[Rfam]
RNA sequence: GGCAGGUCUGAAGAUAGUGGAUAACUCAAUGGAUUGUUCAUAGUCAGCUAUAGAUUGAACUCCUUGUUUUACUCCUUCUCCCCUUCUCAAUACUACACUUGACUAGUCUUAC
Numbered sequence: 001g002g003c004a005g006g007u008c009u010g011a012a013g014a015u016a017g018u019g020g021a022u023a024a025c026u027c028a029a030u031g032g033a034u035u036g037u038u039c040a041u042a043g044u045c046a047g048c049u050a051u052a053g054a055u056u057g058a059a060c061u062c063c064u065u066g067u068u069u070u071a072c073u074c075c076u077u078c079u080c081c082c083c084u085u086c087u088c089a090a091u092a093c094u095a096c097a098c099u100u101g102a103c104u105a106g107u108c109u110u111a112c
Base pairs, nucleotide, nucleotide: 001108002107003106005104006103007102008101010100011099015095016091018089019088020087043073046070047069